[Rfam]
RNA sequence: CUGAGCUAGUGAUGAUUAUAAAGUUAUCCCUGUCUGAACGGCAGUUUUUGUGUGGAUUCUGUCCUGCUGAGGCCCAG
Dot-bracket structure: (((.(((...............................................................))).)))
A member of the RNA family "Small nucleolar RNA R38" from Vombatus ursinus, 77 nucleotides long. The literature on the family includes a 1995 paper in Trends Biochem Sci by Bachellerie et al., "Antisense snoRNAs: a family of nucleolar RNAs with long complementarities to rRNA". Rfam's curators write: snoR38 is a C/D box small nucleolar RNA conserved across yeast, human, Arabidopsis and rice. It is encoded in the intron of elongation factor-1 gamma in both pombe and cerevisiae. snoR38 guides the methylation of 2'-O-ribose sites in 28S rRNA. Rfam 15.1 lists 2,295 matches to the family in 1,305 species. Its family is annotated with RNA processing and nucleolus in the Gene Ontology.